The record is a 275-nucleotide sequence from Miscanthus lutarioriparius, which matches "MIR821 microRNA precursor family" in Rfam. The literature on the family includes a 2006 paper in FEBS Lett by Luo et al., "Rice embryogenic calli express a unique set of microRNAs, suggesting regulatory roles of microRNAs in plant post-embryogenic development". Rfam links the family to the GO terms RISC complex and miRNA-mediated post-transcriptional gene silencing. Taxonomically the source falls in Miscanthus (Eukaryota, Tracheophyta, Euphyllophyta, Mesangiospermae). The family's consensus secondary structure was predicted with RNAalifold.

RNA sequence: GAUUUGAACUCAAAAAGUCAUGAACAUAAAAGUUGUAGAACUCAUCAAGACCUACAACUUUUAUUUUGGUCAUUUCUUCAUCCGAUAAAGUGAUAGUAACAUUGUUCACAAAACUUACAUAUCUCUCAUAUAGUAUAUGAAACUAUACGAGAGAUAUGUAAAAUUUGUGAACAAUGUUCUUAUCACUUUGUCGGAUGAACAAAUGACCAAAAUAGAAGUUUUAGAUCUUGAUGAGUUAUACAACUUUUAUAUUCAUGACUUUUCCAGCUGAAUUC
Numbered sequence: 001g002a003u004u005u006g007a008a009c010u011c012a013a014a015a016a017g018u019c020a021u022g023a024a025c026a027u028a029a030a031a032g033u034u035g036u037a038g039a040a041c042u043c044a045u046c047a048a049g050a051c052c053u054a055c056a057a058c059u060u061u062u063a064u065u066u067u068g069g070u071c072a073u074u075u076c077u078u079c080a081u082c083c084g085a086u087a088a089a090g091u092g093a094u095a096g097u098a099a100c101a102u103u104g105u106u107c108a109c110a111a112a113a114c115u116u117a118c119a120u121a122u123c124u125c126u127c128a129u130a131u132a133g134u135a136u137a138u139g140a141a142a143c144u145a146u147a148c149g150a151g152a153g154a155u156a157u158g159u160a161a162a163a164u165u166u167g168u169g170a171a172c173a174a175u176g177u178u179c180u181u182a183u184c185a186c187u188u189u190g191u192c193g194g195a196u197g198a199a200c201a202a203a204u205g206a207c208c209a210a211a212a213u214a215g216a217a218g219u220u221u222u223a224g225a226u227c228u229u230g231a232u233g234a235g236u237u238a239u240a241c242a243a244c245u246u247u248u249a250u251a252u253u254c255a256u257g258a259c260u261u262u263u264c265c266a267g268c269u270g271a272a273u274u275c
Stems, first nucleotide, its partner, number of pairs: 014262008023253002026250002030246008039237004044232007052224002056220012069207007077199005083193010094182003098178002101175012115161001117159006131145004136140001